[Rfam]
RNA sequence: UAUAUUGCACCGGGGAGCUGGAUUAGCUGGCUGAGAGGGAAUGAAGCAUCGUUCCGACCCGUAUACCUGAACCGGAUAAUGCCGGCGUAGGAAGGAAAGCUACCUUUUUC
Numbered sequence: 001u002a003u004a005u006u007g008c009a010c011c012g013g014g015g016a017g018c019u020g021g022a023u024u025a026g027c028u029g030g031c032u033g034a035g036a037g038g039g040a041a042u043g044a045a046g047c048a049u050c051g052u053u054c055c056g057a058c059c060c061g062u063a064u065a066c067c068u069g070a071a072c073c074g075g076a077u078a079a080u081g082c083c084g085g086c087g088u089a090g091g092a093a094g095g096a097a098a099g100c101u102a103c104c105u106u107u108u109u110c
Base pairs, nucleotide, nucleotide: 006098010094011061012060013059014058017031018030019029020028021027038055039054040053041052042051043050044049066091067090068089069088072085073084074083075082

This 110-nucleotide RNA from Paenibacillus oryzae belongs to the Rfam family "TPP riboswitch aptamer (THI element)".